[Rfam]
The record is a 225-nucleotide RNA from Cellulomonas marina, which matches "Actinobacteria sRNA Ms_IGR-5" in Rfam. NCBI's taxonomy places the organism under Bacteria, Bacillati, Actinomycetes, Cellulomonadaceae, Cellulomonas. By type it is a small RNA. The base pairs follow the family's consensus structure.
Nucleotides: 225
Stems, first nucleotide, its partner, number of pairs: 013057006058133004063129002066127004152219012165185006
Number, partner (000 for none) and nucleotide at each position: 001000a002000c003000a004000c005000g006000g007000a008000a009000g010000g011000g012000a013057g014056g015055u016054g017053g018052u019000c020000c021000u022000g023000a024000g025000g026000u027000g028000a029000a030000u031000u032000c033000u034000c035000a036000u037000a038000g039000g040000a041000c042000g043000c044000g045000u046000g047000a048000g049000g050000u051000g052018g053017c054016u055015g056014c057013c058133c059132g060131c061130u062000a063129g064128u065000c066127g067126c068125c069124c070000g071000a072000g073000c074000a075000c076000u077000c078000g079000g080000a081000c082000g083000g084000a085000u086000u087000g088000u089000c090000c091000c092000g093000a094000u095000c096000c097000g098000c099000c100000g101000u102000g103000c104000c105000c106000c107000g108000c109000c110000g111000g112000a113000c114000c115000g116000u117000u118000c119000c120000g121000g122000a123000c124069g125068g126067g127066c128064g129063c130061a131060g132059c133058g134000a135000a136000u137000c138000c139000c140000c141000g142000g143000c144000a145000g146000u147000c148000a149000c150000c151000g152219c153218a154217g155216c156215c157214c158213g159212u160211g161210g162209g163208u164000g165185c166184c167183g168182u169181g170180g171000u172000c173000u174000c175000g176000u177000c178000c179000u180170c181169c182168a183167c184166g185165g186000c187000a188000g189000g190000u191000c192000c193000c194000c195000g196000u197000c198000a199000g200000g201000g202000g203000a204000g205000c206000c207000g208163g209162c210161c211160c212159a213158c214157g215156g216155g217154c218153u219152g220000u221000u222000g223000c224000c225000u